[Rfam]
RNA sequence: GUAUGUGCAGCUGAUGACAGCAUCGCUGCUGAGACUCGAUGAUGGCUCAGCCUUAAAGUAAACGCUCUGAUGCACAUCAC
Numbered sequence: 001g002u003a004u005g006u007g008c009a010g011c012u013g014a015u016g017a018c019a020g021c022a023u024c025g026c027u028g029c030u031g032a033g034a035c036u037c038g039a040u041g042a043u044g045g046c047u048c049a050g051c052c053u054u055a056a057a058g059u060a061a062a063c064g065c066u067c068u069g070a071u072g073c074a075c076a077u078c079a080c
Stems, first nucleotide, its partner, number of pairs: 005075005010021004029050005

This 80-nucleotide RNA sequence from Sorex araneus belongs to the Rfam family "Small nucleolar RNA U105B". Rfam 15.1 lists 132 matches to the family in 131 species. Rfam links the family to the GO terms RNA processing and nucleolus. The literature on the family includes a 2006 paper in Nucleic Acids Res by Yang et al., "snoSeeker: an advanced computational package for screening of guide and orphan snoRNA genes in the human genome". The family is grouped with related families in Rfam's "SNORD105 clan". NCBI's taxonomy places the organism under Eukaryota, Opisthokonta, Craniata, Soricidae, Sorex.